RNA sequence: UCAAUGGCCCUUUUCAGGGCCACCAAUUCAUUACCAAAGAGUGUU
Dot-bracket structure: .....((((((....))))))........................
The record is a 45-nucleotide RNA from Bugula neritina, which matches "Histone 3' UTR stem-loop" in Rfam. Its family is annotated with mRNA 3'-end processing by stem-loop binding and cleavage in the Gene Ontology. The family's consensus secondary structure is taken from published work. The family's RNA type in Rfam is cis-regulatory element. The source organism's lineage runs through Eukaryota, Opisthokonta, Bryozoa, Buguloidea and Bugula. The mRNAs of metazoan histone genes lack a poly-A tail. 3' end processing occurs at a site between a highly conserved stem-loop (modelled by this family) and a purine rich region around 20 nts downstream (the histone downstream element, or HDE). The stem-loop is bound by a 31 kDa stem-loop binding protein (SLBP - also termed the histone hairpin binding protein, or HBP). Together with U7 snRNA binding of the HDE, SLBP binding nucleate s the formation of the processing complex.